[Rfam]
RNA sequence: AUGAAGAAUACGGGAGAAUAAUGGCAAAUUGAGUGCCUUGACCGAAGAAGCAAGUUGUCACUAUACCCAGGGUGGCGAUGAAACUUUCAGGUAACAGGACCGUAUUUGGACA
Numbered sequence: 001a002u003g004a005a006g007a008a009u010a011c012g013g014g015a016g017a018a019u020a021a022u023g024g025c026a027a028a029u030u031g032a033g034u035g036c037c038u039u040g041a042c043c044g045a046a047g048a049a050g051c052a053a054g055u056u057g058u059c060a061c062u063a064u065a066c067c068c069a070g071g072g073u074g075g076c077g078a079u080g081a082a083a084c085u086u087u088c089a090g091g092u093a094a095c096a097g098g099a100c101c102g103u104a105u106u107u108g109g110a111c112a
Stems, first nucleotide, its partner, number of pairs: 006107008020039002023036001041092003044088002048086003054079009
RNA: Glycine riboswitch aptamer
Organism: Syntrophaceticus schinkii